[Rfam]
RNA sequence: UUGAGGAAUUCCCUGAAUGUGACGCAAAUCACUUCAAAGAGUGAGCAACAGUCAGUAUCAUCAUGUGAGUUAAACCCUCGCCGCCUGACGGUGAGGGUUUUCUUUUGGG
Numbered sequence: 001u002u003g004a005g006g007a008a009u010u011c012c013c014u015g016a017a018u019g020u021g022a023c024g025c026a027a028a029u030c031a032c033u034u035c036a037a038a039g040a041g042u043g044a045g046c047a048a049c050a051g052u053c054a055g056u057a058u059c060a061u062c063a064u065g066u067g068a069g070u071u072a073a074a075c076c077c078u079c080g081c082c083g084c085c086u087g088a089c090g091g092u093g094a095g096g097g098u099u100u101u102c103u104u105u106u107g108g109g
Base pairs, nucleotide, nucleotide: 015035016034017033019032020031021030022029072100073099074098075097076096077095078094079093080092081091082090083089
Rfam assigns this 109-nucleotide sequence from Escherichia coli to the family "Enterobacteria rnk leader". It is one of the family's seed sequences. Its family is annotated with regulation of gene expression in the Gene Ontology. On this family, see Naville and Gautheret, Genome Biol 2010: "Premature terminator analysis sheds light on a hidden world of bacterial transcriptional attenuation". The family's RNA type in Rfam is cis-regulatory leader. The organism belongs to Escherichia coli K-12, within Bacteria.